About this RNA
The family of this 109-nucleotide sequence from Alsobacter soli is "TPP riboswitch aptamer (THI element)". The match comes from Rfam's covariance-model search (64 bits). The source organism's lineage runs through Bacteria, Pseudomonadati, Pseudomonadota, Alphaproteobacteria and Alsobacter. Vitamin B(1) in its active form thiamin pyrophosphate (TPP) is an essential coenzyme that is synthesised by coupling of pyrimidine and thiazole moieties in bacteria.

[Rfam]
RNA sequence: CAUCUCUCGUCGGGGUGCCGUCUCAUGCGGAGGCGGCUGAGAGGCGUUCCGCCAACCCGUCGAACCUGAUCCGGCUCGCACCGGCGGAGGGAACGUGAGAUGGGCCGCG
Numbered sequence: 001c002a003u004c005u006c007u008c009g010u011c012g013g014g015g016u017g018c019c020g021u022c023u024c025a026u027g028c029g030g031a032g033g034c035g036g037c038u039g040a041g042a043g044g045c046g047u048u049c050c051g052c053c054a055a056c057c058c059g060u061c062g063a064a065c066c067u068g069a070u071c072c073g074g075c076u077c078g079c080a081c082c083g084g085c086g087g088a089g090g091g092a093a094c095g096u097g098a099g100a101u102g103g104g105c106c107g108c109g
Stems, first nucleotide, its partner, number of pairs: 006097001008095003011059004017037008044052003065090003071084004